Shown here is an 88-nucleotide RNA sequence from Trichonephila inaurata, a member of the family "mir-7 microRNA precursor family". This family represents the microRNA (miRNA) precursor mir-7. Taxonomically the source falls in Trichonephila inaurata (Eukaryota, Chelicerata, Arachnida, Orbiculariae). It scores 54 bits against the family's covariance model. The family has 132 seed sequences and 2,589 matches in Rfam 15.1. The family's consensus secondary structure was predicted with PFOLD.
RNA sequence: UUUCGUUCUCUGCUUGGAAGACUAGUGAUUUUAUUGUUGUGUAACUGAGUUAAACAAUAGAAACACUGUCUCCCAUCGGUGAAUGAAC
Dot-bracket structure: .(((((((.(((.(.((.((((..(((.(((.((((((..............))))))).)).))).)))))).).))).))))))).
Numbered sequence: 001u002u003u004c005g006u007u008c009u010c011u012g013c014u015u016g017g018a019a020g021a022c023u024a025g026u027g028a029u030u031u032u033a034u035u036g037u038u039g040u041g042u043a044a045c046u047g048a049g050u051u052a053a054a055c056a057a058u059a060g061a062a063a064c065a066c067u068g069u070c071u072c073c074c075a076u077c078g079g080u081g082a083a084u085g086a087a088c
Stems, first nucleotide, its partner, number of pairs: 002087007010079003014075001016073002019071004025066003029062002031059001033058006